RNA: Selenocysteine insertion sequence 1
Organism: Branchiostoma belcheri
RNA sequence: GACACACGAAUGAAAGCUGUGCAGUAAACCUACAGGGUAUGCAUGGCCGGAUGUACAGUGUC
Numbered sequence: 001g002a003c004a005c006a007c008g009a010a011u012g013a014a015a016g017c018u019g020u021g022c023a024g025u026a027a028a029c030c031u032a033c034a035g036g037g038u039a040u041g042c043a044u045g046g047c048c049g050g051a052u053g054u055a056c057a058g059u060g061u062c
Stems, first nucleotide, its partner, number of pairs: 001062005016047008029036002